[Rfam]
RNA sequence: AUUUAUCAAAUUUUUAGAUAUUUCUAACAAAUCAAAAAAUAAACCAUUCUAUCGAAAGGAGCAUAAUAAAAUGAUGCAAAGUACAAUGCAAUAUCAACCGACAACUUCAAAUAUUUUAGUCAUUUUAUUAUGCUCAUAGGACUGGAACUUUAGUAAAAAAUUUACUAAGAGUUUAAGUCCUCUUUCUAGUUGAAUGGGACUUAAAAA
Numbered sequence: 001a002u003u004u005a006u007c008a009a010a011u012u013u014u015u016a017g018a019u020a021u022u023u024c025u026a027a028c029a030a031a032u033c034a035a036a037a038a039a040u041a042a043a044c045c046a047u048u049c050u051a052u053c054g055a056a057a058g059g060a061g062c063a064u065a066a067u068a069a070a071a072u073g074a075u076g077c078a079a080a081g082u083a084c085a086a087u088g089c090a091a092u093a094u095c096a097a098c099c100g101a102c103a104a105c106u107u108c109a110a111a112u113a114u115u116u117u118a119g120u121c122a123u124u125u126u127a128u129u130a131u132g133c134u135c136a137u138a139g140g141a142c143u144g145g146a147a148c149u150u151u152a153g154u155a156a157a158a159a160a161u162u163u164a165c166u167a168a169g170a171g172u173u174u175a176a177g178u179c180c181u182c183u184u185u186c187u188a189g190u191u192g193a194a195u196g197g198g199a200c201u202u203a204a205a206a207a
Base pairs, nucleotide, nucleotide: 023206025204045196046195047194048193049192051190052189054187057134058133060131068114070112072110076106138181139180140179141178142177147173148171149170150168151167152166153165154164155163156162
This 207-nucleotide sequence from Staphylococcus gallinarum belongs to the Rfam family "Listeria sRNA rli60". Rfam classes the family as a small RNA. The family's consensus secondary structure was predicted with RNAalifold.